[Rfam]
Notes
The family of this 109-nucleotide RNA sequence from Clostridium aciditolerans is "SAM riboswitch aptamer (S box leader)". Taxonomically the source falls in Clostridium (Bacteria, Bacillota, Clostridia, Clostridiaceae). A search with the family's covariance model found it, with a score of 82 bits.

RNA sequence: AACUUAUCAAGAGUGGUGGAGGGACUGGCCCUAUGAAGCCCAGCAACCGGUGUUACUUUUUUGUAAUACAACGGUGCUAAUUCCUGCAGCGAAGGCUGGAAGAUGAGAG
Number, nucleotide and partner (000 for none) at each position: 001a000002a000003c107004u106005u105006a104007u103008c102009a000010a000011g000012a000013g041014u000015g040016g039017u038018g000019g000020a000021g031022g030023g029024a000025c086026u000027g084028g083029c023030c022031c021032u000033a000034u000035g000036a000037a000038g017039c016040c015041c013042a078043g077044c076045a075046a000047c074048c073049g000050g069051u068052g067053u066054u065055a064056c000057u000058u000059u000060u000061u000062u000063g000064u055065a054066a053067u052068a051069c050070a000071a000072c000073g048074g047075u045076g044077c043078u042079a000080a000081u000082u101083c028084c027085u000086g025087c098088a097089g096090c095091g000092a000093a000094g000095g090096c089097u088098g087099g000100a000101a082102g008103a007104u006105g005106a004107g003108a000109g000